RNA: Caenorhabditis snoRNA ceN43
RNA sequence: AGCCCGGUCUUUGCCCCGGAUCAACUUGAAUAGUUAUGACGGUUUCCGACCAGGGAAAAUAGAUUCUUGUACGUAGAGGUGAUUUCAGACUACGUUCCGAAUGUCUCUUGUCUACGUACAAUACAUUU
Numbered sequence: 001a002g003c004c005c006g007g008u009c010u011u012u013g014c015c016c017c018g019g020a021u022c023a024a025c026u027u028g029a030a031u032a033g034u035u036a037u038g039a040c041g042g043u044u045u046c047c048g049a050c051c052a053g054g055g056a057a058a059a060u061a062g063a064u065u066c067u068u069g070u071a072c073g074u075a076g077a078g079g080u081g082a083u084u085u086c087a088g089a090c091u092a093c094g095u096u097c098c099g100a101a102u103g104u105c106u107c108u109u110g111u112c113u114a115c116g117u118a119c120a121a122u123a124c125a126u127u128u
Stems, first nucleotide, its partner, number of pairs: 003055003007050003016042003023035004067121007075113003078108002084101003088097002